[Rfam]
RNA sequence: GAAACCUCAUCUUGCUCGCCGCCAUCCGGGCGUCGAGCAGUGUUUUUACAAGAAAACACAGGCAAUCCGCCUGGGUGAGGAGAGAGA
Numbered sequence: 001g002a003a004a005c006c007u008c009a010u011c012u013u014g015c016u017c018g019c020c021g022c023c024a025u026c027c028g029g030g031c032g033u034c035g036a037g038c039a040g041u042g043u044u045u046u047u048a049c050a051a052g053a054a055a056a057c058a059c060a061g062g063c064a065a066u067c068c069g070c071c072u073g074g075g076u077g078a079g080g081a082g083a084g085a086g087a
Stems, first nucleotide, its partner, number of pairs: 005080008015037003020032004040059008060072004
Shown here is an 87-nucleotide sequence, a member of the family "RAGATH-10 RNA". It is annotated as a small RNA. The literature on the family includes a 2015 paper in Nat Chem Biol by Weinberg et al., "New classes of self-cleaving ribozymes revealed by comparative genomics analysis".